RNA: Purine riboswitch aptamer
RNA sequence: AAAUAUUAUUUCUACGAAUCCUAUAUAAUCUCGAUAAUAUGGAUCGAGAGUUUCUACCAGAUAACCGUAAAUUAUCUGACUAUAGGAGAAGAGUUUUUUUAA
Numbered sequence: 001a002a003a004u005a006u007u008a009u010u011u012c013u014a015c016g017a018a019u020c021c022u023a024u025a026u027a028a029u030c031u032c033g034a035u036a037a038u039a040u041g042g043a044u045c046g047a048g049a050g051u052u053u054c055u056a057c058c059a060g061a062u063a064a065c066c067g068u069a070a071a072u073u074a075u076c077u078g079a080c081u082a083u084a085g086g087a088g089a090a091g092a093g094u095u096u097u098u099u100u101a102a
Base pairs, nucleotide, nucleotide: 019087020086021085022084023083024082025081029049030048031047032046033045034044035043058078059077060076061075062074063073064072